[Rfam]
RNA: c-di-GMP-I riboswitch aptamer
RNA sequence: ACUCGACAAAGGCACAACCGGCGAAAGCCGGCGUCGCAAAGCUCCCGGGUACCGGCCCAGCGCGCCGGCACGGCCGAGCUACCGAG
Numbered sequence: 001a002c003u004c005g006a007c008a009a010a011g012g013c014a015c016a017a018c019c020g021g022c023g024a025a026a027g028c029c030g031g032c033g034u035c036g037c038a039a040a041g042c043u044c045c046c047g048g049g050u051a052c053c054g055g056c057c058c059a060g061c062g063c064g065c066c067g068g069c070a071c072g073g074c075c076g077a078g079c080u081a082c083c084g085a086g
Base pairs, nucleotide, nucleotide: 012037013036018031019030020029021028022027040080041079042078043077046076047075048074049071050070052068053067054066055065